[Rfam]
RNA sequence: GCCAAUGAUGAUCUAUCCGAUCAGUGGAGUUGCAAAUGGUGCUGAGACCUUGUGAAAACAAGGAGAACCUACUUGGCGUUGCCUUUGCAUCUCAAUGACAACACUGGAUGUAAACUGAGGU
Numbered sequence: 001g002c003c004a005a006u007g008a009u010g011a012u013c014u015a016u017c018c019g020a021u022c023a024g025u026g027g028a029g030u031u032g033c034a035a036a037u038g039g040u041g042c043u044g045a046g047a048c049c050u051u052g053u054g055a056a057a058a059c060a061a062g063g064a065g066a067a068c069c070u071a072c073u074u075g076g077c078g079u080u081g082c083c084u085u086u087g088c089a090u091c092u093c094a095a096u097g098a099c100a101a102c103a104c105u106g107g108a109u110g111u112a113a114a115c116u117g118a119g120g121u
Stems, first nucleotide, its partner, number of pairs: 001121003048063005
Rfam assigns this 121-nucleotide RNA from Taxus chinensis to the family "Small nucleolar RNA Z278". The family's RNA type in Rfam is C/D-box small nucleolar RNA. The base pairs follow the family's consensus structure, which was predicted with PFOLD. About the family: snoZ278 is a C/D box small nucleolar RNA. Its methylation guide targets have not been reported. On this family, see Chen et al., Nucleic Acids Res 2003: "The high diversity of snoRNAs in plants: identification and comparative study of 120 snoRNA genes from Oryza sativa".